This 150-nucleotide RNA from Duffyella gerundensis belongs to the Rfam family "STAXI RNA". Lineage of the source: Bacteria > Pseudomonadati > Gammaproteobacteria > Erwiniaceae > Duffyella.
RNA sequence: UGUCGUCGAUGACGACCACCAAUGGUCCGGUAGCUUGAGAGGAUCGCCUUCGGGUAGCUGCAAAAACACUCCCGCAGCCUGAAAGGGAGAACGCAAAAGCGUGGUAAAUCGGCUCACCUUUGGAAGCAGAUAUCGUCUUUAAAAGCGCAC
Numbered sequence: 001u002g003u004c005g006u007c008g009a010u011g012a013c014g015a016c017c018a019c020c021a022a023u024g025g026u027c028c029g030g031u032a033g034c035u036u037g038a039g040a041g042g043a044u045c046g047c048c049u050u051c052g053g054g055u056a057g058c059u060g061c062a063a064a065a066a067c068a069c070u071c072c073c074g075c076a077g078c079c080u081g082a083a084a085g086g087g088a089g090a091a092c093g094c095a096a097a098a099g100c101g102u103g104g105u106a107a108a109u110c111g112g113c114u115c116a117c118c119u120u121u122g123g124a125a126g127c128a129g130a131u132a133u134c135g136u137c138u139u140u141a142a143a144a145g146c147g148c149a150c
Base pairs, nucleotide, nucleotide: 002016003015004014005013006012007011024045025044026043027042028041030061031060032059033058034057035056046055047054048053069089070088071087072086077105078104079103091102092101093100109130110129112127113126115147117145119143120142131141132140
The family has 43 seed sequences and 130 matches in Rfam 15.1.